RNA sequence: CUCAACUGUCCUCGAGUGAGGUAGAGUCGUGUUAUUGCGUCACCACGACAACAUCAGUUUGAGGAAAAUUUUA
Numbered sequence: 001c002u003c004a005a006c007u008g009u010c011c012u013c014g015a016g017u018g019a020g021g022u023a024g025a026g027u028c029g030u031g032u033u034a035u036u037g038c039g040u041c042a043c044c045a046c047g048a049c050a051a052c053a054u055c056a057g058u059u060u061g062a063g064g065a066a067a068a069u070u071u072u073a
Base pairs, nucleotide, nucleotide: 002073004071005070009065010064011063012062013061014060015059016058017056018055019054021052022051026049027048028047029046030045031044
mir-2816 microRNA precursor family: a 73-nucleotide RNA sequence from Bombyx mori.